This 236-nucleotide RNA from Trichloromonas acetexigens belongs to the Rfam family "Group II catalytic intron D1-D4-6". The match comes from Rfam's covariance-model search (66 bits). Lineage of the source: Bacteria > Desulfuromonadia > Desulfuromonadales > Trichloromonadaceae > Trichloromonas.
[Rfam]
RNA sequence: AAAGUCCCGUCCGGGGAGUUGUCCGUUCACCCCGGUAGUUCAAGGGAGCGGCGUCUGAGUAAUCAGGGGUCGUAAGUUCCCAAUUGGCAAAGCAGCAGGCCGUAACGGAAGUGAACCUAUGGGUAGCCUCGUUACUUGCCAUGGAGAUGCCGACCCAGUGGUCAAAUGGGGAAGGCCGAAGUUCGCGGGCUGAGAAAACGGAAGCGGCCGGUGAAAUCUCCCGGGGUCGAAGGGGC
Numbered sequence: 001a002a003a004g005u006c007c008c009g010u011c012c013g014g015g016g017a018g019u020u021g022u023c024c025g026u027u028c029a030c031c032c033c034g035g036u037a038g039u040u041c042a043a044g045g046g047a048g049c050g051g052c053g054u055c056u057g058a059g060u061a062a063u064c065a066g067g068g069g070u071c072g073u074a075a076g077u078u079c080c081c082a083a084u085u086g087g088c089a090a091a092g093c094a095g096c097a098g099g100c101c102g103u104a105a106c107g108g109a110a111g112u113g114a115a116c117c118u119a120u121g122g123g124u125a126g127c128c129u130c131g132u133u134a135c136u137u138g139c140c141a142u143g144g145a146g147a148u149g150c151c152g153a154c155c156c157a158g159u160g161g162u163c164a165a166a167u168g169g170g171g172a173a174g175g176c177c178g179a180a181g182u183u184c185g186c187g188g189g190c191u192g193a194g195a196a197a198a199c200g201g202a203a204g205c206g207g208c209c210g211g212u213g214a215a216a217u218c219u220c221c222c223g224g225g226g227u228c229g230a231a232g233g234g235g236c
Base pairs, nucleotide, nucleotide: 012034013033014032015031016030019025022201023200036086037085038084039083044081045080046078047077048073049072050071051070052069054067055066056065057064058063122228126227127226128225129224130223131222143221144220145219146218147217148216149176150175151174154170155169156168157167182214183213188209189208190207191206
Dot-bracket structure: ...........(((((..(..[[.)....))))).((((....(((((((((.(((((....))))).)))))...)).)).))))...................................(...((((((...........(((((((((..((((.........))))...))).....((....((((........]]....))))...)).)))))))))))))........